[Rfam]
RNA sequence: GGUUCGGGAGCCGCGCGGUGGGACGGGCGGCAUGAAUGGAACCUCACCCCUGCAUUCGUAGGCCGUAUUCCGGGGGCCCCGACCCGGAACGCG
Numbered sequence: 001g002g003u004u005c006g007g008g009a010g011c012c013g014c015g016c017g018g019u020g021g022g023a024c025g026g027g028c029g030g031c032a033u034g035a036a037u038g039g040a041a042c043c044u045c046a047c048c049c050c051u052g053c054a055u056u057c058g059u060a061g062g063c064c065g066u067a068u069u070c071c072g073g074g075g076g077c078c079c080c081g082a083c084c085c086g087g088a089a090c091g092c093g
Stems, first nucleotide, its partner, number of pairs: 001043005010031005016025002064093003068089001070087005
RNA: Rhodo-rpoB RNA